The family of this 237-nucleotide RNA from Streptomyces roseolilacinus is "Streptomyces sRNA 4677". Pairs were carried over by alignment from the consensus structure. Lineage of the source: Bacteria > Actinomycetes > Kitasatosporales > Streptomycetaceae > Streptomyces.

[Rfam]
RNA sequence: CGUCGUGGUGGGCCGCGAGGUGUUGUCUCAAAGGACGCAGGGAAGUGAGGAACCCUCCUCCCCACCCCACCCUCGUCACCCGUCACUCACACGGGUGGAAUGUGCAACUGGGUUGAUUUUUGGGCGGGUUGGCAGGCAUAUGCUCGCGUCAACCGAUGGCCUGACAGACGUCGGCCCCCGGCCGGGAGUAGCGUUCCCGAUCGAGGGCCUGACCACCAGGAAGAAGAAGGCUUCCCG
Numbered sequence: 001c002g003u004c005g006u007g008g009u010g011g012g013c014c015g016c017g018a019g020g021u022g023u024u025g026u027c028u029c030a031a032a033g034g035a036c037g038c039a040g041g042g043a044a045g046u047g048a049g050g051a052a053c054c055c056u057c058c059u060c061c062c063c064a065c066c067c068c069a070c071c072c073u074c075g076u077c078a079c080c081c082g083u084c085a086c087u088c089a090c091a092c093g094g095g096u097g098g099a100a101u102g103u104g105c106a107a108c109u110g111g112g113u114u115g116a117u118u119u120u121u122g123g124g125c126g127g128g129u130u131g132g133c134a135g136g137c138a139u140a141u142g143c144u145c146g147c148g149u150c151a152a153c154c155g156a157u158g159g160c161c162u163g164a165c166a167g168a169c170g171u172c173g174g175c176c177c178c179c180g181g182c183c184g185g186g187a188g189u190a191g192c193g194u195u196c197c198c199g200a201u202c203g204a205g206g207g208c209c210u211g212a213c214c215a216c217c218a219g220g221a222a223g224a225a226g227a228a229g230g231c232u233u234c235c236c237g
Base pairs, nucleotide, nucleotide: 007217008216009215010214016075017074018073019072083098084097085096086095087094088093112147114146115145116144173209174208175207176206177205179203180202181201184197185196186195187194219235220234221233222232223231